[Rfam]
RNA sequence: UGGGAUCUCGUAUCCGCCGUGCCCCUGUGUCCGCUAUAGACCCUGUAUCUUCCCCAGCGGCAGAUACAGGGUCUAUAGCGGACACAGGGGCACGGCGGAUACGAGAUCCCAAGCA
Numbered sequence: 001u002g003g004g005a006u007c008u009c010g011u012a013u014c015c016g017c018c019g020u021g022c023c024c025c026u027g028u029g030u031c032c033g034c035u036a037u038a039g040a041c042c043c044u045g046u047a048u049c050u051u052c053c054c055c056a057g058c059g060g061c062a063g064a065u066a067c068a069g070g071g072u073c074u075a076u077a078g079c080g081g082a083c084a085c086a087g088g089g090g091c092a093c094g095g096c097g098g099a100u101a102c103g104a105g106a107u108c109c110c111a112a113g114c115a
Base pairs, nucleotide, nucleotide: 010102011101012100013099014098015097016096018094019093021091022090023089024088025087026086027085028084029083030082031081032080033079034078035077036076037075038074039073040072041071042070043069044068045067046066047065048064049063050062
Rfam assigns this 115-nucleotide RNA sequence from Branchiostoma lanceolatum to the family "mraW RNA". NCBI's taxonomy places the organism under Eukaryota, Bilateria, Deuterostomia, Amphioxiformes, Branchiostoma.